[Rfam]
RNA: Bacterial RNase P class A
Organism: Atopobium deltae
RNA sequence: GAAGUGAGCUCGACGAUCGCGGAUGCGUGCCUGUAGAUAAGUAUAUAUCUGCCGCAGCCAUGCAUAUGAGGAAAGUCCGGGCUCCACAGGGCACGAUGCUGGCUAACGACCAGGCGGAGAAAUCCGACGGAAAGCGCCGCAGAAAAGAAGACUCCCACUGCCUGCGCGACACGCACAACUUGUCUAGGACAGGUCAACGUGGCAAGCGGGUAAGAGAAAAGCUGAAACGGUAGUGUAAGAGACUACCAGCGUCGUAGCAAUACGGCGGCUUGGCAAGCCCCAUCUGGAGCAAACGCAAAUAGGAGCGCGGCGAAGCUGCCCGCUGAGCGCUCGGGUUGCGCGCUAGAGCAUCGUGGUAACACGGAUGCGUAGAUAAAUGAUCGUCCACGACAGAACCCGGCUUAUAGGCUCACUUCGCAU
Numbered sequence: 001g002a003a004g005u006g007a008g009c010u011c012g013a014c015g016a017u018c019g020c021g022g023a024u025g026c027g028u029g030c031c032u033g034u035a036g037a038u039a040a041g042u043a044u045a046u047a048u049c050u051g052c053c054g055c056a057g058c059c060a061u062g063c064a065u066a067u068g069a070g071g072a073a074a075g076u077c078c079g080g081g082c083u084c085c086a087c088a089g090g091g092c093a094c095g096a097u098g099c100u101g102g103c104u105a106a107c108g109a110c111c112a113g114g115c116g117g118a119g120a121a122a123u124c125c126g127a128c129g130g131a132a133a134g135c136g137c138c139g140c141a142g143a144a145a146a147g148a149a150g151a152c153u154c155c156c157a158c159u160g161c162c163u164g165c166g167c168g169a170c171a172c173g174c175a176c177a178a179c180u181u182g183u184c185u186a187g188g189a190c191a192g193g194u195c196a197a198c199g200u201g202g203c204a205a206g207c208g209g210g211u212a213a214g215a216g217a218a219a220a221g222c223u224g225a226a227a228c229g230g231u232a233g234u235g236u237a238a239g240a241g242a243c244u245a246c247c248a249g250c251g252u253c254g255u256a257g258c259a260a261u262a263c264g265g266c267g268g269c270u271u272g273g274c275a276a277g278c279c280c281c282a283u284c285u286g287g288a289g290c291a292a293a294c295g296c297a298a299a300u301a302g303g304a305g306c307g308c309g310g311c312g313a314a315g316c317u318g319c320c321c322g323c324u325g326a327g328c329g330c331u332c333g334g335g336u337u338g339c340g341c342g343c344u345a346g347a348g349c350a351u352c353g354u355g356g357u358a359a360c361a362c363g364g365a366u367g368c369g370u371a372g373a374u375a376a377a378u379g380a381u382c383g384u385c386c387a388c389g390a391c392a393g394a395a396c397c398c399g400g401c402u403u404a405u406a407g408g409c410u411c412a413c414u415u416c417g418c419a420u
Stems, first nucleotide, its partner, number of pairs: 001416010012385007020068002023065006073403003077400005082289004089321004095284004099113004114128001115126004129280002134278002136274003152221002155216001159212007229247006249269001250267007294340003303332006314324003348368005353362003
Dot-bracket structure: ((((((((((.(((((((.((.((((((...............................)))))).))....[[[.[[[[[((((...[[[[..((((((((.......))))(((((....)))).)((...(((((.............((.(...(((((((........................................)))))))...)...)).......((((((.......)))))).((((((((....))))))).)..)))..)))))))).))))....(((......((((((.....(((.]]]])))..)))))).....))).......((((((((....))).)))))..........)))))))..........]]]]]]]]...))))))))))....